RNA sequence: CACUGCCUUCGGCUUCUUUACAGUGCUGCCUUGUUGCAUUCAUGUCAAGCAGCAUUGUACAGGGCUAUGAAGGCAUUG
Number, nucleotide and partner (000 for none) at each position: 001c000002a000003c000004u000005g000006c000007c000008u000009u000010c000011g000012g000013c000014u064015u063016c062017u061018u000019u059020a058021c057022a056023g055024u054025g053026c052027u051028g050029c000030c049031u048032u047033g046034u000035u000036g000037c000038a000039u000040u000041c000042a000043u000044g000045u000046c033047a032048a031049g030050c028051a027052g026053c025054a024055u023056u022057g021058u020059a019060c000061a017062g016063g015064g014065c000066u000067a000068u000069g000070a000071a000072g000073g000074c000075a000076u000077u000078g000
RNA: mir-103/107 microRNA precursor family
Organism: Hippolais icterina